[Rfam]
RNA sequence: GUUAACCUCAAAUGUAAGUCCCUUUGGAUAAAAGCGUCUGCUAAAUGACUGAAU
Numbered sequence: 001g002u003u004a005a006c007c008u009c010a011a012a013u014g015u016a017a018g019u020c021c022c023u024u025u026g027g028a029u030a031a032a033a034g035c036g037u038c039u040g041c042u043a044a045a046u047g048a049c050u051g052a053a054u
Stems, first nucleotide, its partner, number of pairs: 013043001014041003020036001022034004
RNA: UnaL2 LINE 3' element
Organism: Triplophysa tibetana